[Rfam]
RNA sequence: AUGGCUAUUAUAGAUAGGUUUGUAUUUAUGAUAUAGAGAUCAUCAUAGAUACAAACGUCAACAAAACGUUGUAUCUAUGAUGGCUUACUUUGCGUGAGAUAAGAGCAGGCCACAUAGAAAAACUAUGUGGCCUUUUGAUAUUACAAGACAAAAGCAGGCUACAUAGAAUUUACUAUGAGGCCUGCUUUUUUAUAUUUUUAAAAGUACUUCUAU
Numbered sequence: 001a002u003g004g005c006u007a008u009u010a011u012a013g014a015u016a017g018g019u020u021u022g023u024a025u026u027u028a029u030g031a032u033a034u035a036g037a038g039a040u041c042a043u044c045a046u047a048g049a050u051a052c053a054a055a056c057g058u059c060a061a062c063a064a065a066a067c068g069u070u071g072u073a074u075c076u077a078u079g080a081u082g083g084c085u086u087a088c089u090u091u092g093c094g095u096g097a098g099a100u101a102a103g104a105g106c107a108g109g110c111c112a113c114a115u116a117g118a119a120a121a122a123c124u125a126u127g128u129g130g131c132c133u134u135u136u137g138a139u140a141u142u143a144c145a146a147g148a149c150a151a152a153a154g155c156a157g158g159c160u161a162c163a164u165a166g167a168a169u170u171u172a173c174u175a176u177g178a179g180g181c182c183u184g185c186u187u188u189u190u191u192a193u194a195u196u197u198u199u200a201a202a203a204g205u206a207c208u209u210c211u212a213u
Stems, first nucleotide, its partner, number of pairs: 003085005011077006018056015059071004093147001095145002098142003108132006115125003150189011

A member of the RNA family "Enterococcus sRNA 2410" from Holtiella tumoricola, 213 nucleotides long.
The family has 3 seed sequences and 74 matches in Rfam 15.1.
From the family's description: Produced as 2 transcripts on Northern blot. Expressed in mid, late exponential and early stationary phases of growth.